[Rfam]
RNA sequence: AUUCCUUAUAUCGUGUAUCCUUGAUUGAUGCGGCCUCAAAUGCUUCA
Number, nucleotide and partner (000 for none) at each position: 001a000002u000003u000004c000005c000006u000007u000008a000009u000010a025011u024012c023013g022014u000015g000016u000017a000018u000019c000020c000021u000022u013023g012024a011025u010026u000027g000028a000029u000030g000031c000032g044033g043034c042035c000036u000037c000038a000039a000040a000041u000042g034043c033044u032045u000046c000047a000
Shown here is a 47-nucleotide sequence from Triticum urartu, a member of the family "Plastid-ycf3 group II-D1 intron". Rfam's curators write: Plastid rpl16 is a non-coding RNA (ncRNA) recognised in plastids. It was recognised in and intronic region of a ribosome rpl16 gene. Lineage of the source: Eukaryota > Streptophytina > Magnoliopsida > Mesangiospermae > Triticum. Rfam links the family to the GO term Group II intron splicing.